[Rfam]
The family of this 141-nucleotide sequence from Gadus morhua is "Small nucleolar RNA SNORA29". By type it is an H/ACA-box small nucleolar RNA. Gene Ontology terms of the family: nucleolus and RNA processing. Taxonomically the source falls in Gadus (Eukaryota, Actinopteri, Neoteleostei, Gadiformes). The family has 26 seed sequences and 960 matches in Rfam 15.1. The literature on the family includes a 2001 paper in EMBO J by Huttenhofer et al., "RNomics: an experimental approach that identifies 201 candidates for novel, small, non-messenger RNAs in mouse".

RNA sequence: AUUCCUGUUUUACUACCGCUCAUCUGACUCCCCAGAGAUGAGUGGCUAUGCUAACGGGAUAGAGUCUCUCCAUCGUUGUCUGAGGAGGUUUUGGCGGCCUCCAUUCCGCUAUCUCUAAAUGCAAUGAUGGCACAUGUCCAG
Dot-bracket structure: ...((((........((((......................)))).........)))).............((((..........(((.........................)))........)))).............